[Rfam]
RNA sequence: AAUCGCUGUGAUGACUCGGAAAUUCAAGCUCAACAGACCGGAUUGCUGGUCUCCCUCUACAGAGAUGUUGCUAGCAUGUCGAUAAUCCCGCUGAACUCAGCGAUU
Numbered sequence: 001a002a003u004c005g006c007u008g009u010g011a012u013g014a015c016u017c018g019g020a021a022a023u024u025c026a027a028g029c030u031c032a033a034c035a036g037a038c039c040g041g042a043u044u045g046c047u048g049g050u051c052u053c054c055c056u057c058u059a060c061a062g063a064g065a066u067g068u069u070g071c072u073a074g075c076a077u078g079u080c081g082a083u084a085a086u087c088c089c090g091c092u093g094a095a096c097u098c099a100g101c102g103a104u105u
Base pairs, nucleotide, nucleotide: 001105002104003103004102005101006100

The record is a 105-nucleotide RNA from Salvia splendens, which matches "Small nucleolar RNA Z107/R87" in Rfam. The base pairs follow the family's consensus structure, which was predicted with RNAfold. By type it is a C/D-box small nucleolar RNA.